Fluoride riboswitch aptamer (crcB RNA motif): a 69-nucleotide sequence from Edaphobacter modestus. A search with the family's covariance model found it, with a score of 53 bits. Its family is annotated with positive regulation of gene expression and response to fluoride in the Gene Ontology. The source organism's lineage runs through Bacteria, Acidobacteriota, Terriglobia, Terriglobales and Edaphobacter.
RNA sequence: AAAAGCUAUGGCGAUGGGGUUCGCCGUAACUGCACGCAGAACAUCGCUGCUGAUGACUCCUACUCAAAG
Numbered sequence: 001a002a003a004a005g006c007u008a009u010g011g012c013g014a015u016g017g018g019g020u021u022c023g024c025c026g027u028a029a030c031u032g033c034a035c036g037c038a039g040a041a042c043a044u045c046g047c048u049g050c051u052g053a054u055g056a057c058u059c060c061u062a063c064u065c066a067a068a069g
Stems, first nucleotide, its partner, number of pairs: 010025004016060006032050003